[Rfam]
RNA: GP20-b RNA
RNA sequence: GGUUAGCUGAACCUAAAAUCAGCACUGCAAGGACAAGGCGACGUCCUAAAAAGCCUA
Numbered sequence: 001g002g003u004u005a006g007c008u009g010a011a012c013c014u015a016a017a018a019u020c021a022g023c024a025c026u027g028c029a030a031g032g033a034c035a036a037g038g039c040g041a042c043g044u045c046c047u048a049a050a051a052a053g054c055c056u057a
Stems, first nucleotide, its partner, number of pairs: 001013003006023005031046004